Source information
c-di-GMP-I riboswitch aptamer: an 87-nucleotide RNA sequence from Paenibacillus antri. It scores 78 bits against the family's covariance model. GEMM was predicted in a large-scale screen for bacterial structured RNA regulatory elements.

RNA sequence: GUUGAUUCAAGGCAAACCCAUCGAAAGGUGGGGACGCAAAGCUAUAGGGGCUACGCUUACGAGUAAGCAUGCCAGCCAGCUGCCGCA
Numbered sequence: 001g002u003u004g005a006u007u008c009a010a011g012g013c014a015a016a017c018c019c020a021u022c023g024a025a026a027g028g029u030g031g032g033g034a035c036g037c038a039a040a041g042c043u044a045u046a047g048g049g050g051c052u053a054c055g056c057u058u059a060c061g062a063g064u065a066a067g068c069a070u071g072c073c074a075g076c077c078a079g080c081u082g083c084c085g086c087a
Base pairs, nucleotide, nucleotide: 012037013036017032018031019030020029021028022027040081041080042079043078047077048076049073050072051071056067057066058065059064